[Rfam]
RNA sequence: ACUUGUUGACAAUAAACGCAAUAGGUAUACUGGACGAGGGUGCAACUCCCUCCACCUCCACCAUAAACACAUUAUGGUCCUAGAUGAAGGAAAUUAAUGUGUUUAUGGGGGGUGUGGUAGGUUCGACAGGUACUAAAAGGUUUAUAAGAGAGUAAUAGUUGGCGAACUCAUACGCAUUUUUAAAUGGCGAAGAUAAUUUUGCCCUUGCAGCCUAG
Numbered sequence: 001a002c003u004u005g006u007u008g009a010c011a012a013u014a015a016a017c018g019c020a021a022u023a024g025g026u027a028u029a030c031u032g033g034a035c036g037a038g039g040g041u042g043c044a045a046c047u048c049c050c051u052c053c054a055c056c057u058c059c060a061c062c063a064u065a066a067a068c069a070c071a072u073u074a075u076g077g078u079c080c081u082a083g084a085u086g087a088a089g090g091a092a093a094u095u096a097a098u099g100u101g102u103u104u105a106u107g108g109g110g111g112g113u114g115u116g117g118u119a120g121g122u123u124c125g126a127c128a129g130g131u132a133c134u135a136a137a138a139g140g141u142u143u144a145u146a147a148g149a150g151a152g153u154a155a156u157a158g159u160u161g162g163c164g165a166a167c168u169c170a171u172a173c174g175c176a177u178u179u180u181u182a183a184a185u186g187g188c189g190a191a192g193a194u195a196a197u198u199u200u201g202c203c204c205u206u207g208c209a210g211c212c213u214a215g
Stems, first nucleotide, its partner, number of pairs: 001153004014143004026132003030129003036052005053114007

Record summary: This 215-nucleotide sequence belongs to the Rfam family "permuted transfer-messenger RNA". On this family, see Williams and Bartel, RNA 1996: "Phylogenetic analysis of tmRNA secondary structure". Rfam links the family to the GO term RNA catabolic process. Rfam classes the family as a non-coding RNA gene.